[Rfam]
RNA sequence: GGGCUGUGAUGACUGAGAACAUUCCUUGAUUCUGAUAAGGACCAAAGCAAGUUGUUUUGUCUGUGAUGACAAUGUUUGUGCGUGUCUCAGCCUC
Numbered sequence: 001g002g003g004c005u006g007u008g009a010u011g012a013c014u015g016a017g018a019a020c021a022u023u024c025c026u027u028g029a030u031u032c033u034g035a036u037a038a039g040g041a042c043c044a045a046a047g048c049a050a051g052u053u054g055u056u057u058u059g060u061c062u063g064u065g066a067u068g069a070c071a072a073u074g075u076u077u078g079u080g081c082g083u084g085u086c087u088c089a090g091c092c093u094c
Stems, first nucleotide, its partner, number of pairs: 001093004